MIR2118 microRNA precursor family: a 162-nucleotide RNA sequence from Leersia perrieri. For this family Rfam cites "Characterization and expression profiles of miRNAs in rice seeds" (Xue et al., Nucleic Acids Res, 2009). Taxonomically the source falls in Leersia (Eukaryota, Mesangiospermae, commelinids, Oryzoideae). A search with the family's covariance model found it, with a score of 141 bits.
RNA sequence: CCGGUGAAGAGGAAGAAUGAGAGGGUUCAAGGGCAGUGGGAAUGGGAACAUGGAGGAAAGCAUGAGCUCUAAAUUUCUUUCAAAGGGGAGAUUUGGCUUUGUGUUUUCCUGAUGCCUCCCAUUCCUAUUGUUCUUGGGCACUCCUUCCUCUUCCUUCUUGGC
Numbered sequence: 001c002c003g004g005u006g007a008a009g010a011g012g013a014a015g016a017a018u019g020a021g022a023g024g025g026u027u028c029a030a031g032g033g034c035a036g037u038g039g040g041a042a043u044g045g046g047a048a049c050a051u052g053g054a055g056g057a058a059a060g061c062a063u064g065a066g067c068u069c070u071a072a073a074u075u076u077c078u079u080u081c082a083a084a085g086g087g088g089a090g091a092u093u094u095g096g097c098u099u100u101g102u103g104u105u106u107u108c109c110u111g112a113u114g115c116c117u118c119c120c121a122u123u124c125c126u127a128u129u130g131u132u133c134u135u136g137g138g139c140a141c142u143c144c145u146u147c148c149u150c151u152u153c154c155u156u157c158u159u160g161g162c
Stems, first nucleotide, its partner, number of pairs: 009153005015147003021143003026138010037127011049114003053110001055109007